RNA sequence: AAAGGCCCCGGUGAUGGAUUGCCACCAGUGGCCCUGCCUUGCAGCGUGCCCAAACCGCCUUCAGCCCACCAUGUAAACAGCAUGGGAUUGCUGAAAAGGCUGAUGAUUCCUGCCUGCAA
Numbered sequence: 001a002a003a004g005g006c007c008c009c010g011g012u013g014a015u016g017g018a019u020u021g022c023c024a025c026c027a028g029u030g031g032c033c034c035u036g037c038c039u040u041g042c043a044g045c046g047u048g049c050c051c052a053a054a055c056c057g058c059c060u061u062c063a064g065c066c067c068a069c070c071a072u073g074u075a076a077a078c079a080g081c082a083u084g085g086g087a088u089u090g091c092u093g094a095a096a097a098g099g100c101u102g103a104u105g106a107u108u109c110c111u112g113c114c115u116g117c118a119a
Base pairs, nucleotide, nucleotide: 010026011025012024013023016110017109018108020106057100058099059098060097